[Rfam]
RNA sequence: CAAAACGGAAUAGCGCCAGAUCUGUCUUAACAGAUGACGAGGAUGAAGCUUAUCGAAAUAUUCGGCGGAUGGCUUCAGGGACUGCACCCUAUAGGUAAAUUACAAAUCCACUUGCGAAAGUGCUACAAAAGAUUUACCAGCAGAUAGA
Numbered sequence: 001c002a003a004a005a006c007g008g009a010a011u012a013g014c015g016c017c018a019g020a021u022c023u024g025u026c027u028u029a030a031c032a033g034a035u036g037a038c039g040a041g042g043a044u045g046a047a048g049c050u051u052a053u054c055g056a057a058a059u060a061u062u063c064g065g066c067g068g069a070u071g072g073c074u075u076c077a078g079g080g081a082c083u084g085c086a087c088c089c090u091a092u093a094g095g096u097a098a099a100u101u102a103c104a105a106a107u108c109c110a111c112u113u114g115c116g117a118a119a120g121u122g123c124u125a126c127a128a129a130a131g132a133u134u135u136a137c138c139a140g141c142a143g144a145u146a147g148a
Base pairs, nucleotide, nucleotide: 020035021034022033023032024031025030045076046075047074048073049072053065054064055063056062077090078089079088080087094138095137096136097135098134099133100132109122110121111120112119113118